Shown here is a 280-nucleotide sequence from Hungatella hathewayi, a member of the family "T-box leader".
NCBI's taxonomy places the organism under Bacteria, Bacillati, Clostridia, Lachnospiraceae, Hungatella.
Rfam 15.1 lists 19,395 matches to the family in 1,923 species.
Rfam links the family to the GO term tRNA binding.

RNA sequence: AAAAAGGCGUUGAUAAGAACAAGUAAUAAUGCGCAACAGCACACAGAAAGCAGCCGGUUGAUGAGAGGCGCGUGGAAAGCGGAUUGUGAAUACAUCUUUGAGCUUCACACUGAAAGCAGAUCUGGAAGGGACGGAGAGUCCUGCGGAUCGGCGAGUAGACUGUGACGGAUUCCUGCACACGUUAUCGUGCUAGAGUAUGACGAUCGUACUCGAAGAGGUAAGCGGCGCGAGCCGUUUAUAAAUUAAGGUGGUAACACGGGAUUACAGUCUCGUCCUUUGA
Numbered sequence: 001a002a003a004a005a006g007g008c009g010u011u012g013a014u015a016a017g018a019a020c021a022a023g024u025a026a027u028a029a030u031g032c033g034c035a036a037c038a039g040c041a042c043a044c045a046g047a048a049a050g051c052a053g054c055c056g057g058u059u060g061a062u063g064a065g066a067g068g069c070g071c072g073u074g075g076a077a078a079g080c081g082g083a084u085u086g087u088g089a090a091u092a093c094a095u096c097u098u099u100g101a102g103c104u105u106c107a108c109a110c111u112g113a114a115a116g117c118a119g120a121u122c123u124g125g126a127a128g129g130g131a132c133g134g135a136g137a138g139u140c141c142u143g144c145g146g147a148u149c150g151g152c153g154a155g156u157a158g159a160c161u162g163u164g165a166c167g168g169a170u171u172c173c174u175g176c177a178c179a180c181g182u183u184a185u186c187g188u189g190c191u192a193g194a195g196u197a198u199g200a201c202g203a204u205c206g207u208a209c210u211c212g213a214a215g216a217g218g219u220a221a222g223c224g225g226c227g228c229g230a231g232c233c234g235u236u237u238a239u240a241a242a243u244u245a246a247g248g249u250g251g252u253a254a255c256a257c258g259g260g261a262u263u264a265c266a267g268u269c270u271c272g273u274c275c276u277u278u279g280a
Stems, first nucleotide, its partner, number of pairs: 007103002015098004026087005040074002050071002053069003106164004111159001166181002218239007245277004256273005